[Rfam]
RNA sequence: AUAUCUCCCCUCGGGGGGAGACAGAUUUCACGCUUGCGAGGAAUCAGAGGGAGGAC
Number, nucleotide and partner (000 for none) at each position: 001a000002u000003a000004u021005c020006u019007c018008c017009c016010c015011u000012c000013g000014g000015g010016g009017g008018g007019a006020g005021a004022c000023a000024g045025a044026u043027u042028u041029c040030a000031c038032g037033c000034u000035u000036g000037c032038g031039a000040g029041g028042a027043a026044u025045c024046a000047g000048a000049g000050g000051g000052a000053g000054g000055a000056c000